[Rfam]
RNA sequence: UCCACAGGUGAGAUCAUUCUUACCUGUUCCUCCUUUUGGAGGGCAGAGUUCAUGAUGACUAGAGUUCACACGAUAUGUGAUUAAUUCUCUGCAUAAUCAGGAUCUGCAACAUCCUGAUUGCUCCUACCUGAU
Numbered sequence: 001u002c003c004a005c006a007g008g009u010g011a012g013a014u015c016a017u018u019c020u021u022a023c024c025u026g027u028u029c030c031u032c033c034u035u036u037u038g039g040a041g042g043g044c045a046g047a048g049u050u051c052a053u054g055a056u057g058a059c060u061a062g063a064g065u066u067c068a069c070a071c072g073a074u075a076u077g078u079g080a081u082u083a084a085u086u087c088u089c090u091g092c093a094u095a096a097u098c099a100g101g102a103u104c105u106g107c108a109a110c111a112u113c114c115u116g117a118u119u120g121c122u123c124c125u126a127c128c129u130g131a132u
Base pairs, nucleotide, nucleotide: 024046025045026044028043029042030041031040032039033038072089073088075086077085078083094120095119096118097117098116099115100114101113
Notes: U8 small nucleolar RNA: a 132-nucleotide sequence from Macaca mulatta. Gene Ontology terms of the family: RNA processing and nucleolus. The literature on the family includes a 2001 paper in Gene by Peculis et al., "The U8 snoRNA gene family: identification and characterization of distinct, functional U8 genes in Xenopus". Pairs were carried over by alignment from the consensus structure, which is taken from published work.